[Rfam]
RNA sequence: AUAAAGUGGAGACCAGCCAACACUUUAAAAACGGGGUGAUACCGAAAAACCUUACGAGUAGGAAUAAU
Number, nucleotide and partner (000 for none) at each position: 001a000002u000003a000004a000005a000006g023007u022008g021009g000010a000011g000012a000013c000014c000015a000016g000017c000018c000019a000020a000021c008022a007023c006024u000025u000026u000027a000028a000029a000030a000031a000032c000033g000034g000035g051036g050037u049038g000039a000040u000041a000042c062043c061044g000045a000046a000047a000048a000049a037050c036051c035052u000053u000054a000055c000056g000057a000058g000059u000060a000061g043062g042063a000064a000065u000066a000067a000068u000
RNA: DUF805 RNA
Organism: Maribacter luteus